[Rfam]
RNA sequence: CACUUCGGUCCGGAGAUUAUGGGUUAUCAAUUUGACAAUUUCCUGCCAGCAGGAAGCCCUGGUACCAGGGUUUGGUACCGCUCAUGUUAAUCUCUCCGUGUUCUUCAUAGAAUACAAACCCCUUCCCAUAAUCACCAACUUGACCGUUGU
Numbered sequence: 001c002a003c004u005u006c007g008g009u010c011c012g013g014a015g016a017u018u019a020u021g022g023g024u025u026a027u028c029a030a031u032u033u034g035a036c037a038a039u040u041u042c043c044u045g046c047c048a049g050c051a052g053g054a055a056g057c058c059c060u061g062g063u064a065c066c067a068g069g070g071u072u073u074g075g076u077a078c079c080g081c082u083c084a085u086g087u088u089a090a091u092c093u094c095u096c097c098g099u100g101u102u103c104u105u106c107a108u109a110g111a112a113u114a115c116a117a118a119c120c121c122c123u124u125c126c127c128a129u130a131a132u133c134a135c136c137a138a139c140u141u142g143a144c145c146g147u148u149g150u
Stems, first nucleotide, its partner, number of pairs: 002150002006146005012136002015133009039056007060089005098115006
RNA: Nematode sRNA ceN72-3_ceN74-2
Organism: Caenorhabditis elegans